[Rfam]
RNA sequence: UCGACUGCACUUGCACAGGAUCACUGCUACAGUGAUUCCUCUUGCAUACAUGUCAUAACACAGAGCUUCGCAGCAUCUCUGAUGAUGUCGAUCUCUGCACUGAUAAGGAAUUUGCUGGAGAAUGCUCCUAGAUUGAUGAAAUCUAUCAGUGCAGACUUCUGAAGAGAU
Numbered sequence: 001u002c003g004a005c006u007g008c009a010c011u012u013g014c015a016c017a018g019g020a021u022c023a024c025u026g027c028u029a030c031a032g033u034g035a036u037u038c039c040u041c042u043u044g045c046a047u048a049c050a051u052g053u054c055a056u057a058a059c060a061c062a063g064a065g066c067u068u069c070g071c072a073g074c075a076u077c078u079c080u081g082a083u084g085a086u087g088u089c090g091a092u093c094u095c096u097g098c099a100c101u102g103a104u105a106a107g108g109a110a111u112u113u114g115c116u117g118g119a120g121a122a123u124g125c126u127c128c129u130a131g132a133u134u135g136a137u138g139a140a141a142u143c144u145a146u147c148a149g150u151g152c153a154g155a156c157u158u159c160u161g162a163a164g165a166g167a168u
Stems, first nucleotide, its partner, number of pairs: 003039001006035001008034004017028002020025001045065001049063001051062003076167005094155005100149006106129004131143004
Dot-bracket structure: ..(..(.((((.....((.(....).))..)))))...).....(...(.(((......)))).)..........(((((.............(((((.((((((((((................)))).((((.....)))))))))).))))).......))))).

This 168-nucleotide sequence from Polarella glacialis belongs to the Rfam family "ACEA small nucleolar RNA U3". Pairs were carried over by alignment from the consensus structure, which is taken from published work. The source organism's lineage runs through Eukaryota, Sar, Alveolata, Suessiaceae and Polarella. Its family is annotated with RNA processing and nucleolus in the Gene Ontology. It is annotated as a C/D-box small nucleolar RNA. Rfam describes the family as follows. Small nucleolar RNAs (snoRNAs) are involved in the processing and modification of rRNA in the nucleolus. There are two main classes of snoRNAs: the box C/D class, and the box H/ACA class. U3 snoRNA is a member of the box C/D class. Clan: U3 clan.